[Rfam]
RNA sequence: CCCGCCUGAUCGCUGAAUCUCCGCGUAUGCGGGGAACGGGGGAACCACUUUCCUGGGGCGAAUCGCACCGAGGCUCCGACGGGUGUCGGAGGGAGGAUGCGUAGGGGUACGCUUCGGCGCCCCGAGUCCGUCAGCUAACCUCGUAAGCGUGGCUGAGGUGGUGG
Dot-bracket structure: ..........((((...(((((((....)))))))((((((....((......))(((.....((((..............................))))..((((............))))...))).........)))))).))))...............
RNA: c-di-AMP riboswitch aptamer (ydaO/yuaA leader)
Organism: Symbiobacterium thermophilum